[Rfam]
RNA sequence: UUGUAAUGAUGAUCUAUCAAGGUUUCGCUAAUAUCACCGAACAUUUGUGAUGAUUCCUCUUGGCAGACUGAACAA
Numbered sequence: 001u002u003g004u005a006a007u008g009a010u011g012a013u014c015u016a017u018c019a020a021g022g023u024u025u026c027g028c029u030a031a032u033a034u035c036a037c038c039g040a041a042c043a044u045u046u047g048u049g050a051u052g053a054u055u056c057c058u059c060u061u062g063g064c065a066g067a068c069u070g071a072a073c074a075a
Stems, first nucleotide, its partner, number of pairs: 001075004
Shown here is a 75-nucleotide RNA from Laodelphax striatellus, a member of the family "Small nucleolar RNA SNORD53/SNORD92". The literature on the family includes a 2001 paper in EMBO J by Huttenhofer et al., "RNomics: an experimental approach that identifies 201 candidates for novel, small, non-messenger RNAs in mouse". The base pairs follow the family's consensus structure. The match comes from Rfam's covariance-model search (48 bits). The organism belongs to Laodelphax, within Eukaryota. Gene Ontology terms of the family: nucleolus and RNA processing.